[Rfam]
RNA sequence: AGCACAAAUGAUGAUCAUAAGGGACUUAAUACUGAAGCAUGAUGUCACUUUCAAAGAGAAACUGAUGUGC
Numbered sequence: 001a002g003c004a005c006a007a008a009u010g011a012u013g014a015u016c017a018u019a020a021g022g023g024a025c026u027u028a029a030u031a032c033u034g035a036a037g038c039a040u041g042a043u044g045u046c047a048c049u050u051u052c053a054a055a056g057a058g059a060a061a062c063u064g065a066u067g068u069g070c
Stems, first nucleotide, its partner, number of pairs: 002070005
RNA: Small nucleolar RNA SNORD82